[Rfam]
RNA sequence: AGACAGUGCCUUUCAGGCAUCCUCUCCCAAAACUUCUACGGCCUGGUCGGUAACGACCGGGCCUUUUUUCUUGUCCGU
Number, nucleotide and partner (000 for none) at each position: 001a000002g000003a000004c000005a000006g000007u000008g018009c017010c016011u015012u000013u000014c000015a011016g010017g009018c008019a000020u000021c000022c000023u000024c000025u000026c000027c000028c000029a000030a000031a000032a000033c000034u000035u000036c000037u000038a000039c000040g063041g062042c061043c060044u059045g058046g057047u056048c055049g000050g000051u000052a000053a000054c000055g048056a047057c046058c045059g044060g043061g042062c041063c040064u000065u000066u000067u000068u000069u000070c000071u000072u000073g000074u000075c000076c000077g000078u000
Rfam assigns this 78-nucleotide RNA sequence from Novosphingobium guangzhouense to the family "Makes More Granules Regulator RNA (mmgR)". Its Rfam clan is "suhB sRNA clan". The source organism's lineage runs through Bacteria, Pseudomonadati, Sphingomonadales, Sphingomonadaceae and Novosphingobium. The match comes from Rfam's covariance-model search (56 bits). It is annotated as a small RNA. SuhB later renamed mmgR (makes more granules regulator) was a putative non-coding RNA found multiple times in the Agrobacterium tumefaciens genome and related alpha-proteobacteria. Other non-coding RNAs uncovered in the same analysis include: speF, ybhL, metA, and serC.Several studies inSinorhizobium meliloti showed that suhB element is indeed a non-coding RNA:firstly it was detected on Northern blot and called Sm8RNA, secondly in an RNAseq study referred to as SmelC689.The mutant phenotype's (strain lacking the small RNA) cytoplasm contains higher content of polyhydroxybutyrate (PBH)storage granules than wild type strain. The sRNA is required to limit the PBH intracellular accumulation when the nitrogen-fixing Sinorhizobium meliloti is under condition of surplus carbon in relation to nitrogen. It has been renamed to mmgR. Further study confirmed that mmgR fine-tunes the regulation of PBH storage.Northern blot confirmed the expression of the sRNA in other rhizobia species. MmgR homologues were found in most alpha-proteobacteria.